[Rfam]
RNA: Small nucleolar RNA SNORA38
Nucleotides: 127
Base pairs, nucleotide, nucleotide: 002054003053004052005051006050015040016039017038019036020035021027022026067119068118070117088105089104090102091101092100093099
Number, partner (000 for none) and nucleotide at each position: 001000c002054c003053c004052u005051u006050c007000c008000a009000c010000a011000a012000a013000g014000a015040a016039u017038g018000u019036c020035u021027g022026g023000u024000u025000c026022c027021c028000u029000g030000u031000c032000u033000u034000g035020g036019g037000c038017c039016a040015u041000g042000u043000a044000a045000g046000a047000a048000u049000u050006g051005g052004a053003g054002g055000c056000a057000a058000a059000g060000a061000g062000a063000g064000g065000u066000c067119g068118a069000c070117u071000u072000g073000g074000a075000g076000a077000a078000g079000u080000c081000u082000g083000g084000g085000g086000c087000c088105a089104g090102u091101u092100g093099u094000u095000c096000c097000u098000u099093g100092c101091a102090g103000g104089c105088u106000g107000a108000g109000g110000a111000u112000c113000a114000g115000c116000u117070g118068u119067c120000c121000u122000g123000c124000c125000u126000a127000g